The family of this 102-nucleotide RNA from Sorghum bicolor is "Small nucleolar RNA Z118/Z121/Z120". The family's RNA type in Rfam is C/D-box small nucleolar RNA. On this family, see Chen et al., Nucleic Acids Res 2003: "The high diversity of snoRNAs in plants: identification and comparative study of 120 snoRNA genes from Oryza sativa". It scores 71 bits against the family's covariance model. Gene Ontology terms of the family: nucleolus and RNA processing.
RNA sequence: UAUUUGCCAUGAUGAGUACUAUUAGGACGGUAUCUGAAGGGGGUAGCUUUUAAGUGUACUCUUCUGAUUAUACCAAGACUGGAUAUGGUUUCUGAGCAAAUC
Numbered sequence: 001u002a003u004u005u006g007c008c009a010u011g012a013u014g015a016g017u018a019c020u021a022u023u024a025g026g027a028c029g030g031u032a033u034c035u036g037a038a039g040g041g042g043g044u045a046g047c048u049u050u051u052a053a054g055u056g057u058a059c060u061c062u063u064c065u066g067a068u069u070a071u072a073c074c075a076a077g078a079c080u081g082g083a084u085a086u087g088g089u090u091u092c093u094g095a096g097c098a099a100a101u102c
Base pairs, nucleotide, nucleotide: 002101003100004099005098006097007096040064041063042062043061